[Rfam]
Notes:
The record is an 83-nucleotide sequence from Qiania dongpingensis, which matches "ZMP/ZTP riboswitch aptamer (pfl RNA motif)" in Rfam. Rfam links the family to the GO terms regulation of purine nucleotide biosynthetic process and one-carbon metabolic process. It scores 57 bits against the family's covariance model. The base pairs follow the family's consensus structure, which is taken from published work. The source organism's lineage runs through Bacteria, Clostridia, Lachnospirales, Lachnospiraceae and Qiania.

RNA sequence: GCAAGACCGUGCGACUGGCGGAGAGUAGGAGUACCUACGGGGAGCGCGGGAUAAUAUAUGAGCCGACCGCCUGGGCAGCCUGA
Numbered sequence: 001g002c003a004a005g006a007c008c009g010u011g012c013g014a015c016u017g018g019c020g021g022a023g024a025g026u027a028g029g030a031g032u033a034c035c036u037a038c039g040g041g042g043a044g045c046g047c048g049g050g051a052u053a054a055u056a057u058a059u060g061a062g063c064c065g066a067c068c069g070c071c072u073g074g075g076c077a078g079c080c081u082g083a
Stems, first nucleotide, its partner, number of pairs: 004052001007049006015041002017071005026037004062076003